[Rfam]
RNA: Small nucleolar RNA SNORD83
Organism: Anguilla anguilla
RNA sequence: GCCACAUGAUGAACUGAGAUAAUUUGAGCACUUUUGUGCGAAGAUGACCAGUUAUCUAUCACCCUUUUCUGAUGGCU
Numbered sequence: 001g002c003c004a005c006a007u008g009a010u011g012a013a014c015u016g017a018g019a020u021a022a023u024u025u026g027a028g029c030a031c032u033u034u035u036g037u038g039c040g041a042a043g044a045u046g047a048c049c050a051g052u053u054a055u056c057u058a059u060c061a062c063c064c065u066u067u068u069c070u071g072a073u074g075g076c077u
Base pairs, nucleotide, nucleotide: 001076002075003074004073028039029038030037031036